[Rfam]
RNA: Streptomyces-metH RNA
RNA sequence: GCGUCCCACCUGGCGGAAUCAGAACGAACCCUCGGUGCGGGCUGGAAUACGCUGGGUCUCGUGCGUCGGCGACCGAGUCGACGCAAAGCCGACAGCCGUCGCACACAGGGAGCCCACCAUG
Numbered sequence: 001g002c003g004u005c006c007c008a009c010c011u012g013g014c015g016g017a018a019u020c021a022g023a024a025c026g027a028a029c030c031c032u033c034g035g036u037g038c039g040g041g042c043u044g045g046a047a048u049a050c051g052c053u054g055g056g057u058c059u060c061g062u063g064c065g066u067c068g069g070c071g072a073c074c075g076a077g078u079c080g081a082c083g084c085a086a087a088g089c090c091g092a093c094a095g096c097c098g099u100c101g102c103a104c105a106c107a108g109g110g111a112g113c114c115c116a117c118c119a120u121g
Stems, first nucleotide, its partner, number of pairs: 062085004067080004088102002091100003